[Rfam]
RNA: Small nucleolar RNA SNORD28
Organism: Castor canadensis
RNA sequence: GUUAGAUGAUUUGAAUUAAAAAGCUGAUGUUCUCUAGGGUAUGAUAAUAAUAGCAUGUUAAGGGUUCUGAUGGCA
Dot-bracket structure: ((((..................................................................)))).
Numbered sequence: 001g002u003u004a005g006a007u008g009a010u011u012u013g014a015a016u017u018a019a020a021a022a023g024c025u026g027a028u029g030u031u032c033u034c035u036a037g038g039g040u041a042u043g044a045u046a047a048u049a050a051u052a053g054c055a056u057g058u059u060a061a062g063g064g065u066u067c068u069g070a071u072g073g074c075a
Stems, first nucleotide, its partner, number of pairs: 001074004